[Rfam]
RNA sequence: AUCAUCGCGCGAGUGCCACUCCACUACAUGGACUCGUGACGUCUAAAAAAGGAGGCAGUUCUACCGCGGACUUGCGGUGCGGCAGUGUGGAGACCUGUCGUAAUGCGGCUGCCAUGCAUACGGGGAGCCGCGAGUCGGGCAGUUGAUGAAGUUCGUGCCCGUCAAAGUCAAAUGGUAUGGCA
Numbered sequence: 001a002u003c004a005u006c007g008c009g010c011g012a013g014u015g016c017c018a019c020u021c022c023a024c025u026a027c028a029u030g031g032a033c034u035c036g037u038g039a040c041g042u043c044u045a046a047a048a049a050a051g052g053a054g055g056c057a058g059u060u061c062u063a064c065c066g067c068g069g070a071c072u073u074g075c076g077g078u079g080c081g082g083c084a085g086u087g088u089g090g091a092g093a094c095c096u097g098u099c100g101u102a103a104u105g106c107g108g109c110u111g112c113c114a115u116g117c118a119u120a121c122g123g124g125g126a127g128c129c130g131c132g133a134g135u136c137g138g139g140c141a142g143u144u145g146a147u148g149a150a151g152u153u154c155g156u157g158c159c160c161g162u163c164a165a166a167g168u169c170a171a172a173u174g175g176u177a178u179g180g181c182a
Stems, first nucleotide, its partner, number of pairs: 008038007016031003064077004069169005078102008087094002105131006112124002134163001136161006144155003

The family of this 182-nucleotide RNA is "malK-I RNA". It is annotated as a cis-regulatory element.